The record is a 127-nucleotide RNA from Enterococcus italicus, which matches "FMN riboswitch aptamer (RFN element)" in Rfam.

RNA sequence: GUUCGUCUUCAGGGACAGGGUGAAAUUCCCGACCGGUGGUGAUAGUCCACGAACUAUAUGAGCAAUCAUAUAGCCGAAUCGGUGUAAUUCCGAUACCGACAGUAAAGUCUGGAUAAAGAAGAUAGGG
Numbered sequence: 001g002u003u004c005g006u007c008u009u010c011a012g013g014g015a016c017a018g019g020g021u022g023a024a025a026u027u028c029c030c031g032a033c034c035g036g037u038g039g040u041g042a043u044a045g046u047c048c049a050c051g052a053a054c055u056a057u058a059u060g061a062g063c064a065a066u067c068a069u070a071u072a073g074c075c076g077a078a079u080c081g082g083u084g085u086a087a088u089u090c091c092g093a094u095a096c097c098g099a100c101a102g103u104a105a106a107g108u109c110u111g112g113a114u115a116a117a118g119a120a121g122a123u124a125g126g127g
Stems, first nucleotide, its partner, number of pairs: 003125001005123006018030003032108002034098002036050004045096002054073002078094005100111003
Dot-bracket structure: ..(.((((((.......(((.......))).[[((((((.....[[))))...((................))....(((((.......)))))]])).(((....]])))......)))))).)..
Notes:
Gene Ontology term of the family: FMN binding. Lineage of the source: Bacteria > Bacillota > Lactobacillales > Enterococcus > Enterococcus italicus. A search with the family's covariance model found it, with a score of 103 bits.